[Rfam]
RNA: Small nucleolar RNA Z157/R69/R10
RNA sequence: AUUAGUGCAGUGAUGAAGCAUAUAUUGUGGACUAGAGUUUCUGAUAUUGGGCUCUUCUUCCCAUUUUAUUUUGACGACAAACCCUUGGCUGUCUGAGCACUGUA
Numbered sequence: 001a002u003u004a005g006u007g008c009a010g011u012g013a014u015g016a017a018g019c020a021u022a023u024a025u026u027g028u029g030g031a032c033u034a035g036a037g038u039u040u041c042u043g044a045u046a047u048u049g050g051g052c053u054c055u056u057c058u059u060c061c062c063a064u065u066u067u068a069u070u071u072u073g074a075c076g077a078c079a080a081a082c083c084c085u086u087g088g089c090u091g092u093c094u095g096a097g098c099a100c101u102g103u104a
Stems, first nucleotide, its partner, number of pairs: 003102006038076001040074002045068001046065001048063003